This 112-nucleotide RNA from Chlorocebus sabaeus belongs to the Rfam family "Y RNA". By type it is a non-coding RNA gene. About the family: Y RNAs are components of the Ro ribonucleoprotein particle (Ro RNP), in association with Ro60 and La proteins. The Y RNAs and Ro60 and La proteins are well conserved, but the function of the Ro RNP is not known. In humans the RNA component can be one of four small RNAs -- hY1, hY3, hY4 and hY5. The organism belongs to Chlorocebus, within Eukaryota. Pairs were carried over by alignment from the consensus structure, which is taken from published work.
Nucleotides: 112
Stems, first nucleotide, its partner, number of pairs: 002107007010100002014096002016091004021086001043075002047071002
Number, partner (000 for none) and nucleotide at each position: 001000a002107g003106u004105u005104g006103g007102u008101c009000c010100a011099a012000a013000a014096g015095u016091a017090g018089u019088g020000c021086g022000u023000u024000a025000u026000c027000u028000c029000a030000a031000c032000u033000g034000a035000u036000u037000g038000u039000u040000c041000a042000a043075g044074g045000c046000c047071a048070g049000u050000c051000a052000c053000a054000g055000a056000u057000c058000a059000a060000a061000g062000u063000c064000c065000u066000u067000a068000u069000u070048c071047u072000c073000c074044u075043c076000u077000u078000c079000c080000c081000c082000u083000c084000u085000u086021c087000u088019c089018a090017c091016u092000a093000c094000u095015g096014c097000a098000c099011u100010u101008g102007a103006c104005u105004a106003g107002u108000c109000u110000u111000a112000a